[Rfam]
RNA sequence: GCCGCCCUGGGUUGUUUGCCAGUUAACGAGUCCUCGAGCCGAUAUUUUUAUCCCGGGGGUUCCUUGCUGAUGUUGGUGUGCAGGUCCGCGCGACGGAAAGCCUUAUACAUCACUUGGGCCACCACCUUGAACCAUCGGGUUCAAGGCCAAGUUAACAGCGGCAAUUGCGGGGCUACU
Numbered sequence: 001g002c003c004g005c006c007c008u009g010g011g012u013u014g015u016u017u018g019c020c021a022g023u024u025a026a027c028g029a030g031u032c033c034u035c036g037a038g039c040c041g042a043u044a045u046u047u048u049u050a051u052c053c054c055g056g057g058g059g060u061u062c063c064u065u066g067c068u069g070a071u072g073u074u075g076g077u078g079u080g081c082a083g084g085u086c087c088g089c090g091c092g093a094c095g096g097a098a099a100g101c102c103u104u105a106u107a108c109a110u111c112a113c114u115u116g117g118g119c120c121a122c123c124a125c126c127u128u129g130a131a132c133c134a135u136c137g138g139g140u141u142c143a144a145g146g147c148c149a150a151g152u153u154a155a156c157a158g159c160g161g162c163a164a165u166u167g168c169g170g171g172g173c174u175a176c177u
Stems, first nucleotide, its partner, number of pairs: 004173006011166001012164004017160003032146003036142005055123002059119004066113001068112006080101002085097004
The record is a 177-nucleotide sequence from Exilibacterium tricleocarpae, which matches "6S / SsrS RNA" in Rfam. Rfam's curators write: E. coli 6S RNA was the first non coding RNA to be sequenced, but its function was unknown until recently. It consists of 184 nucleotides that fold into an extended hairpin structure with a large single-stranded internal bulge. The 6S RNA specifically associates with RNA polymerase holoenzyme containing the sigma70 specificity factor. This interaction represses expression from a sigma70-dependent promoter during stationary phase. 6S RNA homologs have recently been identified in most bacterial genomes. Rfam classes the family as a non-coding RNA gene.